This 105-nucleotide RNA from Haliea sp. belongs to the Rfam family "Glycine riboswitch aptamer".
[Rfam]
RNA sequence: GCGCUCCUUGCUGGAGAGAGGCCGUCCCCGAGGCGGUCCACCGAAGGAGCAAACCCCGUCUUGCGCGGGGCGAAUCUCUCAGGUAAAGCGGACAGCAGGGGCCCG
Numbered sequence: 001g002c003g004c005u006c007c008u009u010g011c012u013g014g015a016g017a018g019a020g021g022c023c024g025u026c027c028c029c030g031a032g033g034c035g036g037u038c039c040a041c042c043g044a045a046g047g048a049g050c051a052a053a054c055c056c057c058g059u060c061u062u063g064c065g066c067g068g069g070g071c072g073a074a075u076c077u078c079u080c081a082g083g084u085a086a087a088g089c090g091g092a093c094a095g096c097a098g099g100g101g102c103c104c105g
Base pairs, nucleotide, nucleotide: 006100007099008098009097010096011095012094013093020038021037022036023035024034025033026032040084041083042082043080044079047078048077049076054070055069056068057067058066